[Rfam]
RNA sequence: GAGGCGUACUCCGAAAAGCCUUAAGAGUAGGAA
Numbered sequence: 001g002a003g004g005c006g007u008a009c010u011c012c013g014a015a016a017a018g019c020c021u022u023a024a025g026a027g028u029a030g031g032a033a
Base pairs, nucleotide, nucleotide: 002021003020004019005018010032011031012030

The family of this 33-nucleotide RNA sequence is "DUF805b RNA". The family is grouped with related families in Rfam's "DUF805 clan". It is one of the family's seed sequences. The base pairs follow the family's consensus structure, which is taken from published work.